RNA: L17-Actino-Proteobacteria ribosomal protein leader
RNA sequence: GCACGCGGACAAGUCCGGAUGCGUCUACCCCGGUACCUGGUACGGCCGGAGAGA
Numbered sequence: 001g002c003a004c005g006c007g008g009a010c011a012a013g014u015c016c017g018g019a020u021g022c023g024u025c026u027a028c029c030c031c032g033g034u035a036c037c038u039g040g041u042a043c044g045g046c047c048g049g050a051g052a053g054a
Stems, first nucleotide, its partner, number of pairs: 001022003006017004024054003028051001030049005